A member of the RNA family "GA-cis RNA" from Roseburia sp. 1XD42-69, 86 nucleotides long. By type it is a small RNA. The family's consensus secondary structure is taken from published work.
RNA sequence: AAUAGGAGGAAGGCAAAUGCAAAGCAUUUCUGAAAAUGCCUUCCGACGACUUGCCCUCGAACGAAUGUGAGGGGGUGUUACAUUGA
Numbered sequence: 001a002a003u004a005g006g007a008g009g010a011a012g013g014c015a016a017a018u019g020c021a022a023a024g025c026a027u028u029u030c031u032g033a034a035a036a037u038g039c040c041u042u043c044c045g046a047c048g049a050c051u052u053g054c055c056c057u058c059g060a061a062c063g064a065a066u067g068u069g070a071g072g073g074g075g076u077g078u079u080a081c082a083u084u085g086a
Stems, first nucleotide, its partner, number of pairs: 008044006015029005053076003057072002061068002
It scores 66 bits against the family's covariance model.